[Rfam]
This 71-nucleotide sequence from Firmicutes bacterium CAG:555 belongs to the Rfam family "Fluoride riboswitch aptamer (crcB RNA motif)". Taxonomically the source falls in Bacillota (Bacteria, Bacillati).
Nucleotides: 071
Stems, first nucleotide, its partner, number of pairs: 010025004016062006044052002
Number, partner (000 for none) and nucleotide at each position: 001000c002000a003000u004000c005000a006000u007000a008000u009000a010025g011024g012023g013022a014000a015000u016062g017061a018060g019059g020058u021057c022013u023012c024011c025010c026000g027000u028000g029000g030000a031000g032000g033000u034000a035000u036000c037000c038000a039000a040000a041000a042000u043000c044052g045051c046000u047000u048000a049000g050000u051045g052044c053000u054000g055000a056000u057021g058020a059019c060018u061017u062016c063000u064000g065000a066000a067000a068000a069000a070000u071000c